[Rfam]
RNA sequence: UGUUAAGGUGGGGGCACCAACAUAUCAUCAUGGUGCCAGUCAUCUCUGCGAGAAGGGGAUAGAUCGACGCGUCAAGAAAUCGUUUCUGUUGCCAUGGCUCCAGUAGGCAAUACGAUUGUUGCUUGCGCACAG
Numbered sequence: 001u002g003u004u005a006a007g008g009u010g011g012g013g014g015c016a017c018c019a020a021c022a023u024a025u026c027a028u029c030a031u032g033g034u035g036c037c038a039g040u041c042a043u044c045u046c047u048g049c050g051a052g053a054a055g056g057g058g059a060u061a062g063a064u065c066g067a068c069g070c071g072u073c074a075a076g077a078a079a080u081c082g083u084u085u086c087u088g089u090u091g092c093c094a095u096g097g098c099u100c101c102a103g104u105a106g107g108c109a110a111u112a113c114g115a116u117u118g119u120u121g122c123u124u125g126c127g128c129a130c131a132g
Stems, first nucleotide, its partner, number of pairs: 006045006013037006071128002074124003079116004088111006
Shown here is a 132-nucleotide RNA sequence from Oryza meridionalis, a member of the family "Small nucleolar RNA snoR111". Rfam classes the family as an H/ACA-box small nucleolar RNA. For this family Rfam cites "Experimental RNomics: identification of 140 candidates for small non-messenger RNAs in the plant Arabidopsis thaliana" (Marker et al., Curr Biol, 2002).